[Rfam]
RNA sequence: ACCAGCAGUAGUCAGCUGCCUGUGGCUGCUCAGUGCCUGUGCUAGUGUUAUGCUGCUGGGAGAGAAAGGUGCUGCUGAGCUUUCCUGGUACCAGUGGGGCCGUCCUGGUGCUCAGUGGUGCCAGGUUUUGGCAGCACUCUGCAUGCCCGAGAGUGGAGUAACUCCUGCCCGUGGAGUUAGAGCCUAGAUUGGAUGCAGACAAC
Numbered sequence: 001a002c003c004a005g006c007a008g009u010a011g012u013c014a015g016c017u018g019c020c021u022g023u024g025g026c027u028g029c030u031c032a033g034u035g036c037c038u039g040u041g042c043u044a045g046u047g048u049u050a051u052g053c054u055g056c057u058g059g060g061a062g063a064g065a066a067a068g069g070u071g072c073u074g075c076u077g078a079g080c081u082u083u084c085c086u087g088g089u090a091c092c093a094g095u096g097g098g099g100c101c102g103u104c105c106u107g108g109u110g111c112u113c114a115g116u117g118g119u120g121c122c123a124g125g126u127u128u129u130g131g132c133a134g135c136a137c138u139c140u141g142c143a144u145g146c147c148c149g150a151g152a153g154u155g156g157a158g159u160a161a162c163u164c165c166u167g168c169c170c171g172u173g174g175a176g177u178u179a180g181a182g183c184c185u186a187g188a189u190u191g192g193a194u195g196c197a198g199a200c201a202a203c
Stems, first nucleotide, its partner, number of pairs: 002059008011051002015046004020041001021039002024037003069137009084125003088121006096111001099109003139198006146191001155184002159179007
RNA: Small nucleolar RNA SNORA74